[Rfam]
RNA sequence: AUACUUACCUGUCACAGGAUCUUUCUUGAUCAAAAAGAAGAAAGCCUCUGGUCGAGACGCUGUUAAUGCAAAUGGAUAGAGUUGACACCAGCGAGAGACACAUUGUCUCCUCGAGUGGAUCAUUUUUCACAGCGAGUCGAGCGUUCGCGCUUGACUCC
Numbered sequence: 001a002u003a004c005u006u007a008c009c010u011g012u013c014a015c016a017g018g019a020u021c022u023u024u025c026u027u028g029a030u031c032a033a034a035a036a037g038a039a040g041a042a043a044g045c046c047u048c049u050g051g052u053c054g055a056g057a058c059g060c061u062g063u064u065a066a067u068g069c070a071a072a073u074g075g076a077u078a079g080a081g082u083u084g085a086c087a088c089c090a091g092c093g094a095g096a097g098a099c100a101c102a103u104u105g106u107c108u109c110c111u112c113g114a115g116u117g118g119a120u121c122a123u124u125u126u127u128c129a130c131a132g133c134g135a136g137u138c139g140a141g142c143g144u145u146c147g148c149g150c151u152u153g154a155c156u157c158c
Stems, first nucleotide, its partner, number of pairs: 012118004017047002020044001023042005049090004054086001056083003060079005092113003095109003099105002134157005140151004
Rfam assigns this 158-nucleotide RNA from Rotaria sp. Silwood2 to the family "U1 spliceosomal RNA". A search with the family's covariance model found it, with a score of 98 bits. Pairs were carried over by alignment from the consensus structure, which is taken from published work.